[Rfam]
RNA: mir-344 microRNA precursor family
Organism: Mesocricetus auratus
RNA sequence: UUACCACUCAGGCUCUGGCUAUACUCCAGGACUCAGCUGAUCCUGGGUAUAACCUGAGCCUGACUGUACA
Numbered sequence: 001u002u003a004c005c006a007c008u009c010a011g012g013c014u015c016u017g018g019c020u021a022u023a024c025u026c027c028a029g030g031a032c033u034c035a036g037c038u039g040a041u042c043c044u045g046g047g048u049a050u051a052a053c054c055u056g057a058g059c060c061u062g063a064c065u066g067u068a069c070a
Stems, first nucleotide, its partner, number of pairs: 008063002011060004017054002020051004027039003
Dot-bracket structure: .......((.((((..((.((((...(((.......)))........)))).))..)))).)).......